Annotation
Rfam assigns this 120-nucleotide RNA sequence from Faecalibacterium sp. OM04-11BH to the family "FMN riboswitch aptamer (RFN element)". The match comes from Rfam's covariance-model search (110 bits).
RNA sequence: AGUUCGUUUCAGGGCGGGGUGCAAUUCCCCACUGGCGGUAAAGUCCGCGACCACCCGCAAGGGUGCUGACCCGGUGCAACUCCGGGACCAACGGUAUAGUCCGGAUGCAAGAAACGGCAG
Numbered sequence: 001a002g003u004u005c006g007u008u009u010c011a012g013g014g015c016g017g018g019g020u021g022c023a024a025u026u027c028c029c030c031a032c033u034g035g036c037g038g039u040a041a042a043g044u045c046c047g048c049g050a051c052c053a054c055c056c057g058c059a060a061g062g063g064u065g066c067u068g069a070c071c072c073g074g075u076g077c078a079a080c081u082c083c084g085g086g087a088c089c090a091a092c093g094g095u096a097u098a099g100u101c102c103g104g105a106u107g108c109a110a111g112a113a114a115c116g117g118c119a120g
Stems, first nucleotide, its partner, number of pairs: 004117007017029003031100002033090002035048004043088002052065002070086005092103003
Dot-bracket structure: ...(((((((......(((.......))).[[((((((....[[))))...((..........))....(((((.......)))))]])).(((....]]))).......)))))))...